[Rfam]
A member of the RNA family "Small nucleolar RNA snoR8a" from Rhynchospora breviuscula, 83 nucleotides long. A reference for the family is Brown et al. (2001), "Multiple snoRNA gene clusters from Arabidopsis", RNA. NCBI's taxonomy places the organism under Eukaryota, Magnoliopsida, Liliopsida, Petrosaviidae, Rhynchospora. Rfam 15.1 lists 956 matches to the family in 245 species. A search with the family's covariance model found it, with a score of 61 bits.

RNA sequence: GUUGGUGCUGUGAUUAGAAAAAUCAUUCCUCGUUCUCGAAAUGGCAUGAAGACUCUAUAUACACCCAUAGAAUAUGAGCACCA
Numbered sequence: 001g002u003u004g005g006u007g008c009u010g011u012g013a014u015u016a017g018a019a020a021a022a023u024c025a026u027u028c029c030u031c032g033u034u035c036u037c038g039a040a041a042u043g044g045c046a047u048g049a050a051g052a053c054u055c056u057a058u059a060u061a062c063a064c065c066c067a068u069a070g071a072a073u074a075u076g077a078g079c080a081c082c083a
Stems, first nucleotide, its partner, number of pairs: 003083002006080002